[Rfam]
RNA sequence: GGAUACUUGAGAGGAGCUGUCCCUAGUACGAGAGGACCGGGAUGGACGUACCUCUGGUGUACCAGUUGUUCCGCCAGGAGCACCGCUGGGUAGCUAUGUACGGAUUGGAUAACCGCUGAAUGCAUCUAAGCGGGAAACCAUCCUCAAAACAAGGUAUCCCUUGAGAGCCGUGGAAGACCACCACGUCAAUAGGCCGGGUGUGAAAGCGUGGCAACACGUGAAGCUAACCGGUACUAAUCGCUCGAUAG
Numbered sequence: 001g002g003a004u005a006c007u008u009g010a011g012a013g014g015a016g017c018u019g020u021c022c023c024u025a026g027u028a029c030g031a032g033a034g035g036a037c038c039g040g041g042a043u044g045g046a047c048g049u050a051c052c053u054c055u056g057g058u059g060u061a062c063c064a065g066u067u068g069u070u071c072c073g074c075c076a077g078g079a080g081c082a083c084c085g086c087u088g089g090g091u092a093g094c095u096a097u098g099u100a101c102g103g104a105u106u107g108g109a110u111a112a113c114c115g116c117u118g119a120a121u122g123c124a125u126c127u128a129a130g131c132g133g134g135a136a137a138c139c140a141u142c143c144u145c146a147a148a149a150c151a152a153g154g155u156a157u158c159c160c161u162u163g164a165g166a167g168c169c170g171u172g173g174a175a176g177a178c179c180a181c182c183a184c185g186u187c188a189a190u191a192g193g194c195c196g197g198g199u200g201u202g203a204a205a206g207c208g209u210g211g212c213a214a215c216a217c218g219u220g221a222a223g224c225u226a227a228c229c230g231g232u233a234c235u236a237a238u239c240g241c242u243c244g245a246u247a248g
Base pairs, nucleotide, nucleotide: 001159002158003157004156005155006154007153008152011145012144013143014142017045018044019043020042021041022040023039047102048101049100050099051098055096056095057094062089063088064087065086066085067082068081069080070079071078072077106140107139108138113133114132115131116130117129162245165243166242167241168240169185170184171183172182173181190236191235192234193232194231195230196229197228200224206219207218208217209216210215

Bacterial large subunit ribosomal RNA: a 248-nucleotide part of an RNA from Haematospirillum jordaniae.
The source organism's lineage runs through Bacteria, Pseudomonadota, Rhodospirillales, Novispirillaceae and Haematospirillum.
Rfam 15.1 lists 51,934 matches to the family in 10,816 species.
Pairs were carried over by alignment from the consensus structure, which is taken from published work.